[Rfam]
RNA sequence: CUGGAAUGAUGUGACUUAGCCAAAUCAUACAUUCAUGUGCUCCAUGUGGUUGCAAACAUUGUUUCUAAAGCUGUCUCUCAUGCUAAAACUAAGCACGAAAGCAAGCUUUGGUUGAUGUUGAUGGACCUCAUGUUGAAGUGCAUUUCCCUGAUGAUAAACCGGGAGAAUGGUUGUUUCCUGACCAGA
Number, nucleotide and partner (000 for none) at each position: 001c185002u184003g183004g182005a000006a000007u000008g000009a000010u000011g000012u000013g000014a000015c000016u000017u000018a000019g000020c000021c000022a000023a000024a000025u000026c000027a000028u000029a000030c000031a000032u000033u000034c000035a000036u000037g000038u000039g000040c000041u000042c000043c000044a000045u000046g000047u000048g000049g000050u000051u000052g000053c000054a000055a000056a000057c000058a000059u000060u000061g000062u000063u000064u000065c000066u000067a000068a000069a000070g000071c000072u000073g000074u000075c000076u000077c000078u000079c000080a000081u000082g000083c000084u000085a000086a000087a000088a000089c000090u000091a000092a000093g000094c000095a000096c000097g000098a000099a000100a000101g000102c000103a000104a000105g000106c000107u000108u000109u000110g000111g000112u000113u000114g000115a000116u000117g000118u000119u000120g000121a000122u000123g000124g000125a000126c000127c000128u000129c000130a000131u000132g000133u000134u000135g000136a000137a000138g000139u000140g000141c000142a000143u000144u000145u000146c000147c000148c000149u000150g000151a000152u000153g000154a000155u000156a000157a000158a000159c000160c000161g000162g000163g000164a000165g000166a000167a000168u000169g000170g000171u000172u000173g000174u000175u000176u000177c000178c000179u000180g000181a000182c004183c003184a002185g001186a000
Source information:
This 186-nucleotide sequence from Phaseolus vulgaris belongs to the Rfam family "small nucleolar RNA snoR127". Taxonomically the source falls in Phaseolus (Eukaryota, Streptophytina, Mesangiospermae, Pentapetalae). The family has 3 seed sequences and 273 matches in Rfam 15.1.